[Rfam]
RNA sequence: UAUUAUGUUGGUACAAAAGUAAUUGUGGUUUUUGCCAUUAAAAGGAAUGGCAAAACCCGCAAUUACUUUUGCAUCAACCUAAUA
Numbered sequence: 001u002a003u004u005a006u007g008u009u010g011g012u013a014c015a016a017a018a019g020u021a022a023u024u025g026u027g028g029u030u031u032u033u034g035c036c037a038u039u040a041a042a043a044g045g046a047a048u049g050g051c052a053a054a055a056c057c058c059g060c061a062a063u064u065a066c067u068u069u070u071g072c073a074u075c076a077a078c079c080u081a082a083u084a
Base pairs, nucleotide, nucleotide: 001084002083003082004081005080007078008077009076010075011074012073014071015070016069017068018067019066020065021064022063023062024061025060026059027058028057030055031054032053033052034051035050036049037048038047039046
Shown here is an 84-nucleotide RNA from Mus musculus, a member of the family "mir-548 microRNA precursor family". The sequence is in the family's curated seed alignment. A reference for the family is Witten et al. (2010), "Ultra-high throughput sequencing-based small RNA discovery and discrete statistical biomarker analysis in a collection of cervical tumours and matched controls", BMC Biol. The family's consensus secondary structure was predicted with WAR.